[Rfam]
RNA sequence: GGCUUUCCCCGACGCGAUGCGACAUCCUGCUGCGAUGUUGUAUGACCUGCAGUGUCCGUCGGCGGAAGCA
Numbered sequence: 001g002g003c004u005u006u007c008c009c010c011g012a013c014g015c016g017a018u019g020c021g022a023c024a025u026c027c028u029g030c031u032g033c034g035a036u037g038u039u040g041u042a043u044g045a046c047c048u049g050c051a052g053u054g055u056c057c058g059u060c061g062g063c064g065g066a067a068g069c070a
Base pairs, nucleotide, nucleotide: 002069003068004067005066006065007064009062010061011060012059013058021039022038023037024036025035026034044056045055046054
RNA: bZIP non canonical Hac1/Xbp1 intron
Organism: Coniochaeta pulveracea